Record summary:
The family of this 75-nucleotide sequence from Methylobacterium nodulans is "Makes More Granules Regulator RNA (mmgR)". A search with the family's covariance model found it, with a score of 67 bits.

[Rfam]
RNA sequence: UCGCGCUGCCCUCUUUGGGCGUUUCCUCCCUAGACUUCGGGCCGUUCCGCAAGGGCGGCCUUUUUUCUGUCUCGA
Numbered sequence: 001u002c003g004c005g006c007u008g009c010c011c012u013c014u015u016u017g018g019g020c021g022u023u024u025c026c027u028c029c030c031u032a033g034a035c036u037u038c039g040g041g042c043c044g045u046u047c048c049g050c051a052a053g054g055g056c057g058g059c060c061u062u063u064u065u066u067c068u069g070u071c072u073c074g075a
Base pairs, nucleotide, nucleotide: 008020009019010018011017039061040060041059042058043057044056045055046054047053